RNA: L2-Alphaproteobacteria ribosomal protein leader
RNA sequence: GGCCACCUUCGGGGGGCUGUAAACAUAGGCAGGCAAGACCUGCCGUUAGCUAACGGAAGACAGAAA
Numbered sequence: 001g002g003c004c005a006c007c008u009u010c011g012g013g014g015g016g017c018u019g020u021a022a023a024c025a026u027a028g029g030c031a032g033g034c035a036a037g038a039c040c041u042g043c044c045g046u047u048a049g050c051u052a053a054c055g056g057a058a059g060a061c062a063g064a065a066a
Base pairs, nucleotide, nucleotide: 001018002017003016004015006014007013008012028044029043030042031041032040033039